[Rfam]
RNA sequence: UAUGUAUACAGGUUGAGAAAACACUGUCAAAUCAAACAGUUAAGAGAUUGAUUAAUUAAGCGUAUGUGAAGUACGUCUCCCUGUUUGGAAAAGGUCUUGUUCAAAGAACAAGAUCUUUUUUUAUUU
Numbered sequence: 001u002a003u004g005u006a007u008a009c010a011g012g013u014u015g016a017g018a019a020a021a022c023a024c025u026g027u028c029a030a031a032u033c034a035a036a037c038a039g040u041u042a043a044g045a046g047a048u049u050g051a052u053u054a055a056u057u058a059a060g061c062g063u064a065u066g067u068g069a070a071g072u073a074c075g076u077c078u079c080c081c082u083g084u085u086u087g088g089a090a091a092a093g094g095u096c097u098u099g100u101u102c103a104a105a106g107a108a109c110a111a112g113a114u115c116u117u118u119u120u121u122u123a124u125u126u
Stems, first nucleotide, its partner, number of pairs: 007029001008027004012022003033087006044079003047056003060076006092116010